The record is a 150-nucleotide RNA from Escherichia coli, which matches "Leucine operon leader" in Rfam. The family's consensus secondary structure is taken from published work. By type it is a cis-regulatory leader. Gene Ontology term of the family: leucine biosynthetic process. From the family's description: At least 6 amino acid operons are known to be regulated by attenuation. In each a leader sequence of 150-200 bp is found upstream of the first gene in the operon. This leader sequence can assume two different secondary structures known as the terminator and the anti-terminator structure. In each case the leader also codes for very short peptide sequence that is rich in the end product amino acid of the operon.

RNA sequence: CUGGAGCUGAUUUAAUGACUCACAUCGUUCGCUUUAUCGGUCUACUACUACUAAACGCAUCUUCUUUGCGCGGUAGACGAGUGAGCGGCAUCCAGCAUUAAGCCAGCACGCAGUCAAACAAAAAACCCGCGCCAUUGCGCGGGUUUUUUU
Numbered sequence: 001c002u003g004g005a006g007c008u009g010a011u012u013u014a015a016u017g018a019c020u021c022a023c024a025u026c027g028u029u030c031g032c033u034u035u036a037u038c039g040g041u042c043u044a045c046u047a048c049u050a051c052u053a054a055a056c057g058c059a060u061c062u063u064c065u066u067u068g069c070g071c072g073g074u075a076g077a078c079g080a081g082u083g084a085g086c087g088g089c090a091u092c093c094a095g096c097a098u099u100a101a102g103c104c105a106g107c108a109c110g111c112a113g114u115c116a117a118a119c120a121a122a123a124a125a126c127c128c129g130c131g132c133c134a135u136u137g138c139g140c141g142g143g144u145u146u147u148u149u150u
Base pairs, nucleotide, nucleotide: 004109006107007106008105009104012101013100014099015098016097017096025088026087027086028085029084030083031082032081033080034079048076049075050074051073052072056070057069058068059067122147123146124145125144126143127142128141129140130139131138132137